Rfam assigns this 130-nucleotide RNA from Myotis davidii to the family "Small nucleolar RNA SNORA24".
About the family: ACA24 is a member of the H/ACA class of snoRNA that guide the sites of modification of uridines to pseudouridines.
RNA sequence: CUCCAUGUGUCUUUGAGACCUGUCUCUGUGACAGUCUCCCUUCCUAGCCAUGGAAGAGCAUCCUCUUGUUUAUUGACAAAGCUGUCACCAUUUAAUUGGCAUCAGAUUCUGACUUGCACAAGUGACAUUC
Numbered sequence: 001c002u003c004c005a006u007g008u009g010u011c012u013u014u015g016a017g018a019c020c021u022g023u024c025u026c027u028g029u030g031a032c033a034g035u036c037u038c039c040c041u042u043c044c045u046a047g048c049c050a051u052g053g054a055a056g057a058g059c060a061u062c063c064u065c066u067u068g069u070u071u072a073u074u075g076a077c078a079a080a081g082c083u084g085u086c087a088c089c090a091u092u093u094a095a096u097u098g099g100c101a102u103c104a105g106a107u108u109c110u111g112a113c114u115u116g117c118a119c120a121a122g123u124g125a126c127a128u129u130c
Stems, first nucleotide, its partner, number of pairs: 002054006015040001017038002020034005067127004073121003077116003082105003088099003

A search with the family's covariance model found it, with a score of 134 bits. Rfam links the family to the GO terms nucleolus and RNA processing.